[Rfam]
RNA sequence: GUUGUCGGAUUCACUUCAAUCCACAUGUGUUGGAGUGGACUGAGGUGAAAUUUAUUUCAAGUUCCACUCCAACCCACUCCAACACAUGUGGAUUGAUACGAAUCCGACU
Number, nucleotide and partner (000 for none) at each position: 001g000002u000003u000004g108005u107006c106007g105008g104009a103010u102011u101012c100013a000014c000015u000016u096017c095018a094019a093020u092021c091022c090023a089024c088025a087026u086027g085028u084029g083030u082031u081032g080033g000034a000035g077036u076037g075038g074039a000040c000041u071042g070043a000044g000045g067046u066047g065048a000049a000050a000051u000052u000053u000054a000055u000056u000057u000058c000059a000060a000061g000062u000063u000064c000065c047066a046067c045068u000069c000070c042071a041072a000073c000074c038075c037076a036077c035078u000079c000080c032081a031082a030083c029084a028085c027086a026087u025088g024089u023090g022091g021092a020093u019094u018095g017096a016097u000098a000099c000100g012101a011102a010103u009104c008105c007106g006107a005108c004109u000
RNA: MIR5565 microRNA precursor family
Organism: Sorghum bicolor